RNA: RNase MRP
Organism: Clarias magur
RNA sequence: GCGCAUGCUUGAACACUUGCUUUCUAAGCUACUCGCUGAGAACCUAGUUUCUCCCCAUGUGCUUAGGGGAAAGUCCCCGGACUCUGAACAGAAAUGUUCUGCCUGAACCGCAGUUCAUGAGCUUGUAACGGUACUACUUCCUGCUAAGACGUCACUUCCUGGCUGAGCAGAGUAUCACAAGCCAUGAUGGUCAAGUCCAGAGAAAUGCAGGUACUGCAAAUCCGCACUGCAACUGAACGGGGCUCAUUCUCAGGAUGCG
Numbered sequence: 001g002c003g004c005a006u007g008c009u010u011g012a013a014c015a016c017u018u019g020c021u022u023u024c025u026a027a028g029c030u031a032c033u034c035g036c037u038g039a040g041a042a043c044c045u046a047g048u049u050u051c052u053c054c055c056c057a058u059g060u061g062c063u064u065a066g067g068g069g070a071a072a073g074u075c076c077c078c079g080g081a082c083u084c085u086g087a088a089c090a091g092a093a094a095u096g097u098u099c100u101g102c103c104u105g106a107a108c109c110g111c112a113g114u115u116c117a118u119g120a121g122c123u124u125g126u127a128a129c130g131g132u133a134c135u136a137c138u139u140c141c142u143g144c145u146a147a148g149a150c151g152u153c154a155c156u157u158c159c160u161g162g163c164u165g166a167g168c169a170g171a172g173u174a175u176c177a178c179a180a181g182c183c184a185u186g187a188u189g190g191u192c193a194a195g196u197c198c199a200g201a202g203a204a205a206u207g208c209a210g211g212u213a214c215u216g217c218a219a220a221u222c223c224g225c226a227c228u229g230c231a232a233c234u235g236a237a238c239g240g241g242g243c244u245c246a247u248u249c250u251c252a253g254g255a256u257g258c259g
Base pairs, nucleotide, nucleotide: 002259003258004257005256006255008254009253010252011251012250015212016211017210018209019208020207023067024066025065026064027063028062029061038053039052040051041050042049072244073243075242076241077240078239087098088097089096090095099113100112101111102110115184121182122181123180124179125178126177131175132174133173134172141170142169143168144167151163152162153161154160214229216225217224